Shown here is a 109-nucleotide sequence, a member of the family "SL2 RNA". The literature on the family includes a 2000 paper in Mol Cell Biol by Evans and Blumenthal, "trans splicing of polycistronic Caenorhabditis elegans pre-mRNAs: analysis of the SL2 RNA". By type it is a non-coding RNA gene. Rfam links the family to the GO term mRNA trans splicing, via spliceosome. This family represents SL2 RNA. SL2 RNA is involved in trans splicing in lower eukaryotes.
RNA sequence: GGUUAUAACCCAGAUACUCAAGGUACGCUGGAGUUCCGACCUUUCGAAAGAGAGUGUCGAACAACUAUAACUUUUGGAAAGCCUUCCCGGGGUCAUCCGGUUAGGCGAA
Numbered sequence: 001g002g003u004u005a006u007a008a009c010c011c012a013g014a015u016a017c018u019c020a021a022g023g024u025a026c027g028c029u030g031g032a033g034u035u036c037c038g039a040c041c042u043u044u045c046g047a048a049a050g051a052g053a054g055u056g057u058c059g060a061a062c063a064a065c066u067a068u069a070a071c072u073u074u075u076g077g078a079a080a081g082c083c084u085u086c087c088c089g090g091g092g093u094c095a096u097c098c099g100g101u102u103a104g105g106c107g108a109a
Base pairs, nucleotide, nucleotide: 007035008034009031010030013028015025016024017023037059038058039057040056041054042053043052044051045050083107085105086104089101091098092097